Source information:
Rfam assigns this 84-nucleotide RNA from Hippoglossus hippoglossus to the family "mir-187 microRNA precursor family". NCBI's taxonomy places the organism under Eukaryota, Eumetazoa, Acanthomorphata, Pleuronectiformes, Hippoglossus. The family has 27 seed sequences and 636 matches in Rfam 15.1. On this family, see Lim et al., Science 2003: "Vertebrate microRNA genes".
RNA sequence: CUGGCCGGGCCAAGGGCUGCAACACAGGACAUGGGUCCUGCUCUCCUCCCCGCUCGUGUCUUGUGUUGCAGCCAGUGGAGCUGC
Dot-bracket structure: ..........((..((((.(((((((((((.((((.................)))).))))))))))).))))..)).......